[Rfam]
The record is a 217-nucleotide RNA from Pseudomonas guineae, which matches "sucA-II RNA" in Rfam. Pairs were carried over by alignment from the consensus structure, which is taken from published work. NCBI's taxonomy places the organism under Bacteria, Pseudomonadati, Pseudomonadota, Pseudomonadales, Pseudomonas.
RNA sequence: CUACAGCGCUGGUUUCUACCCAGCGCUGUAGUUUUAGCCAGAACUGCUGCUCACAAAGCGGUGGUUCUAAUUUGAAAAAAUAUAUGACGACCAGCAGGGGCAUCCGGGCUGGUGCCCGGACUAUCUGCGGGAUCCGUGGUGGCUUACCAGUUGCUGCUUCAGGACUGACAGCCAUACGGUUUCUUCGCCGGUGGUGUCCCCUUACCGAGGGUGACCA
Numbered sequence: 001c002u003a004c005a006g007c008g009c010u011g012g013u014u015u016c017u018a019c020c021c022a023g024c025g026c027u028g029u030a031g032u033u034u035u036a037g038c039c040a041g042a043a044c045u046g047c048u049g050c051u052c053a054c055a056a057a058g059c060g061g062u063g064g065u066u067c068u069a070a071u072u073u074g075a076a077a078a079a080a081u082a083u084a085u086g087a088c089g090a091c092c093a094g095c096a097g098g099g100g101c102a103u104c105c106g107g108g109c110u111g112g113u114g115c116c117c118g119g120a121c122u123a124u125c126u127g128c129g130g131g132a133u134c135c136g137u138g139g140u141g142g143c144u145u146a147c148c149a150g151u152u153g154c155u156g157c158u159u160c161a162g163g164a165c166u167g168a169c170a171g172c173c174a175u176a177c178g179g180u181u182u183c184u185u186c187g188c189c190g191g192u193g194g195u196g197u198c199c200c201c202u203u204a205c206c207g208a209g210g211g212u213g214a215c216c217a
Base pairs, nucleotide, nucleotide: 001031002030003029004028005027006026007025008024009023010022011021012020041067042066043065044064046062047061049059050058051057096202097201098200099199100198101196102195103120104119105118106117107116108115121194122193123192124191125190127188128187129186131183132182134179135178139175140174141173142172143171145170149166150165151164152163